[Rfam]
RNA sequence: GCCCAAUUUCGCACGUGCCUGUGGUCGCGUGCCGGUUGGUGGGCAUCCGGACAAGAGGCCGGACAGCCGCCCGAGAACGACCUAGUUCUCGAUACCCCUAACCGGCAGCCGGAGGCGAAACCGGCGUACUUCGCUCUCAGCGGAGGACGCGGCUUAAAGCAACGACGAACGGGCUUUU
Numbered sequence: 001g002c003c004c005a006a007u008u009u010c011g012c013a014c015g016u017g018c019c020u021g022u023g024g025u026c027g028c029g030u031g032c033c034g035g036u037u038g039g040u041g042g043g044c045a046u047c048c049g050g051a052c053a054a055g056a057g058g059c060c061g062g063a064c065a066g067c068c069g070c071c072c073g074a075g076a077a078c079g080a081c082c083u084a085g086u087u088c089u090c091g092a093u094a095c096c097c098c099u100a101a102c103c104g105g106c107a108g109c110c111g112g113a114g115g116c117g118a119a120a121c122c123g124g125c126g127u128a129c130u131u132c133g134c135u136c137u138c139a140g141c142g143g144a145g146g147a148c149g150c151g152g153c154u155u156a157a158a159g160c161a162a163c164g165a166c167g168a169a170c171g172g173g174c175u176u177u178u
Stems, first nucleotide, its partner, number of pairs: 001174004009165003016161003023154008031106009115134005135146004
RNA: Alphaproteobacterial sRNA ar45